Notes: The family of this 129-nucleotide RNA sequence from Nicotiana sylvestris is "MIR6152 microRNA precursor family".
RNA sequence: UAGACAGAUUAUUGUAUUCGACUGUAUUCACGAUAUGUAAUUGUGAAUACAGUAAUGUAAAUAGAGCAAUUCAUGGUCUAUUCAGCUGUUUUUAAACGGAAAGCGAAUCAAUUAACAUAAUAGACUUCU
Numbered sequence: 001u002a003g004a005c006a007g008a009u010u011a012u013u014g015u016a017u018u019c020g021a022c023u024g025u026a027u028u029c030a031c032g033a034u035a036u037g038u039a040a041u042u043g044u045g046a047a048u049a050c051a052g053u054a055a056u057g058u059a060a061a062u063a064g065a066g067c068a069a070u071u072c073a074u075g076g077u078c079u080a081u082u083c084a085g086c087u088g089u090u091u092u093u094a095a096a097c098g099g100a101a102a103g104c105g106a107a108u109c110a111a112u113u114a115a116c117a118u119a120a121u122a123g124a125c126u127u128c129u
Base pairs, nucleotide, nucleotide: 003127004126009123010122011121012120013119014118015117017115018114020113021112023110024109026108027107028106029105031103034098036096037092039090040089041088043086